[Rfam]
RNA sequence: CCUCCAAGCCUCUUUACAAUGCUCAAACCCGAAGGC
Numbered sequence: 001c002c003u004c005c006a007a008g009c010c011u012c013u014u015u016a017c018a019a020u021g022c023u024c025a026a027a028c029c030c031g032a033a034g035g036c
Stems, first nucleotide, its partner, number of pairs: 001035002003032002007023003

Description: This 36-nucleotide RNA sequence from Galliscardovia ingluviei belongs to the Rfam family "abiF RNA". A search with the family's covariance model found it, with a score of 38 bits. The family's consensus secondary structure is taken from published work. Rfam's curators write: Actinobacteria, Bacteroidetes, Clostridia, Proteobacteria, one Clostridia phage. The family's RNA type in Rfam is small RNA.